[Rfam]
Nucleotides: 048
Stems, first nucleotide, its partner, number of pairs: 008039005021033004
Number, partner (000 for none) and nucleotide at each position: 001000g002000g003000a004000a005000u006000c007000a008039u009038g010037g011036c012035u013000g014000c015000a016000a017000c018000g019000g020000a021033g022032u023031g024030c025000u026000u027000u028000g029000c030024g031023c032022a033021c034000g035012g036011g037010c038009u039008g040000a041000a042000g043000g044000a045000a046000g047000a048000g

Shown here is a 48-nucleotide RNA sequence, a member of the family "ssnA RNA". By type it is a cis-regulatory element. Pairs were carried over by alignment from the consensus structure, which is taken from published work.